[Rfam]
RNA sequence: GAGGCAUAAUGAGGAAGAAGUAACAAAAAAUUCUGAGUUAUUGUGAUGAUCAAUCACCUCCUACUCAUUCUGA
Numbered sequence: 001g002a003g004g005c006a007u008a009a010u011g012a013g014g015a016a017g018a019a020g021u022a023a024c025a026a027a028a029a030a031u032u033c034u035g036a037g038u039u040a041u042u043g044u045g046a047u048g049a050u051c052a053a054u055c056a057c058c059u060c061c062u063a064c065u066c067a068u069u070c071u072g073a
Stems, first nucleotide, its partner, number of pairs: 006068002009065001031049002034045001
This 73-nucleotide RNA from Gossypium anomalum belongs to the Rfam family "Small nucleolar RNA Z105". The match comes from Rfam's covariance-model search (51 bits). The family's RNA type in Rfam is C/D-box small nucleolar RNA. Taxonomically the source falls in Gossypium (Eukaryota, eudicotyledons, Pentapetalae, malvids). On this family, see Chen et al., Nucleic Acids Res 2003: "The high diversity of snoRNAs in plants: identification and comparative study of 120 snoRNA genes from Oryza sativa". Pairs were carried over by alignment from the consensus structure, which was predicted with CMfinder. Rfam 15.1 lists 621 matches to the family in 204 species. Gene Ontology terms of the family: nucleolus and RNA processing.